[Rfam]
RNA sequence: AAUACCAUUUUUGGGAUGAAUCCUGGAUUCGUCCCAGAUUUUGGGACGAAUCCUGGAUUCGUCCCAGAUUUUGGGACGAAUUCUGAAUUCGUCCCAGAUUUU
Number, nucleotide and partner (000 for none) at each position: 001a000002a000003u000004a000005c000006c000007a000008u000009u000010u000011u000012u000013g095014g094015g093016a092017u091018g090019a089020a088021u087022c000023c000024u000025g000026g082027a081028u080029u079030c078031g077032u076033c075034c074035c073036a072037g069038a000039u000040u068041u067042u000043g065044g000045g063046a062047c061048g060049a059050a058051u000052c000053c000054u000055g000056g000057a000058u050059u049060c048061g047062u046063c045064c000065c043066a000067g041068a040069u037070u000071u000072u036073g035074g034075g033076a032077c031078g030079a029080a028081u027082u026083c000084u000085g000086a000087a021088u020089u019090c018091g017092u016093c015094c014095c013096a000097g000098a000099u000100u000101u000102u000
Small nucleolar RNA SNORD90: a 102-nucleotide RNA from Zingiber officinale. It is annotated as a C/D-box small nucleolar RNA. The base pairs follow the family's consensus structure, which was predicted with RNAalifold. From the family's description: snoRNA HBII-295 belongs to the family of C/D snoRNAs. It is the human orthologue of the mouse MBII-295 and has no identified RNA target. A search with the family's covariance model found it, with a score of 44 bits. The family has 18 seed sequences and 545 matches in Rfam 15.1. Its family is annotated with RNA processing and nucleolus in the Gene Ontology.